[Rfam]
RNA sequence: CACCCCGGCCCCCCAUGGCAACCGUGCGCGAGGCUUCACUCUCCCGGGCGAACUAUGCCAACUGGGCUGGAUUUAGGGGUGGUUGCGUGGCAUAUGCUCACGCCAAUCCGACAUUCGAGAAAAAAGUCGGCCCCCGCUGGGACUGGCAUCCCGGGGCGAGGGCCUGACCACCAAGGAAGAAGUGAGCUUCCCU
Numbered sequence: 001c002a003c004c005c006c007g008g009c010c011c012c013c014c015a016u017g018g019c020a021a022c023c024g025u026g027c028g029c030g031a032g033g034c035u036u037c038a039c040u041c042u043c044c045c046g047g048g049c050g051a052a053c054u055a056u057g058c059c060a061a062c063u064g065g066g067c068u069g070g071a072u073u074u075a076g077g078g079g080u081g082g083u084u085g086c087g088u089g090g091c092a093u094a095u096g097c098u099c100a101c102g103c104c105a106a107u108c109c110g111a112c113a114u115u116c117g118a119g120a121a122a123a124a125a126g127u128c129g130g131c132c133c134c135c136g137c138u139g140g141g142a143c144u145g146g147c148a149u150c151c152c153g154g155g156g157c158g159a160g161g162g163c164c165u166g167a168c169c170a171c172c173a174a175g176g177a178a179g180a181a182g183u184g185a186g187c188u189u190c191c192c193u
Base pairs, nucleotide, nucleotide: 036051037050039048040047041046066103067102068100069099070098129164130163131162132161133160135158136157137156139152140151141150142149175191176190177189178188179187
The record is a 193-nucleotide RNA from Streptomyces filamentosus, which matches "Streptomyces sRNA 4677" in Rfam. The base pairs follow the family's consensus structure.